Rfam assigns this 57-nucleotide RNA from Merluccius polli to the family "Plastid-psbA-3 3UTR RNA". A reference for the family is Richter et al. (2023), "Retrograde signaling in plants: A critical review focusing on the GUN pathway and beyond", Plant Commun. The family is grouped with related families in Rfam's "Plastid-psbA 3UTR RNA clan". It is annotated as a cis-regulatory element. From the family's description: Plastid psbA-3 is a non-coding RNA (ncRNA) present in plastids. It was identified in inverted repeat sequences in the 3 prime untranslate region (3UTR) of photosystem II quinone-binding protein (psbA). The source organism's lineage runs through Eukaryota, Gnathostomata, Actinopteri, Merlucciidae and Merluccius.

[Rfam]
RNA sequence: AAAGGAACAAUACGCCACCGCUUUUUUAGAAAGCGGUGGCGUAUUGUUCCUUUAUUU
Numbered sequence: 001a002a003a004g005g006a007a008c009a010a011u012a013c014g015c016c017a018c019c020g021c022u023u024u025u026u027u028a029g030a031a032a033g034c035g036g037u038g039g040c041g042u043a044u045u046g047u048u049c050c051u052u053u054a055u056u057u
Base pairs, nucleotide, nucleotide: 001053002052003051004050005049006048007047008046009045010044011043012042013041014040019035020034021033022032023031024030